[Rfam]
RNA: U12 minor spliceosomal RNA
Organism: Carex littledalei
Nucleotides: 181
Base pairs, nucleotide, nucleotide: 004018005017006016007015008014027048028047029046030045033042034041049095050094109181110180111179112178113177117170119168120167121166122165123164125161126160128158129157130156137151138150139149140148
Number, partner (000 for none) and nucleotide at each position: 001000c002000u003000g004018c005017c006016u007015u008014a009000a010000a011000c012000u013000a014008u015007a016006a017005g018004g019000a020000a021000a022000a023000c024000a025000a026000u027048g028047c029046g030045g031000g032000a033042g034041g035000g036000g037000g038000g039000a040000g041034c042033c043000g044000a045030c046029c047028g048027c049095u050094g051000a052000g053000c054000g055000c056000u057000g058000a059000g060000a061000g062000g063000a064000g065000c066000u067000g068000a069000a070000u071000u072000a073000a074000c075000c076000u077000u078000a079000g080000u081000u082000c083000a084000g085000u086000u087000a088000c089000c090000g091000c092000g093000c094050c095049a096000u097000u098000a099000a100000a101000u102000u103000u104000u105000u106000g107000a108000a109181g110180g111179g112178g113177u114000g115000c116000c117170a118000a119168g120167c121166u122165g123164g124000u125161c126160a127000g128158g129157c130156g131000c132000u133000g134000a135000c136000g137151c138150u139149g140148c141000u142000u143000a144000c145000u146000c147000u148140g149139c150138a151137g152000a153000a154000c155000u156130c157129g158128c159000c160126u161125g162000u163000g164123c165122u166121g167120g168119c169000c170117u171000c172000c173000a174000u175000u176000u177113a178112c179111c180110c181109u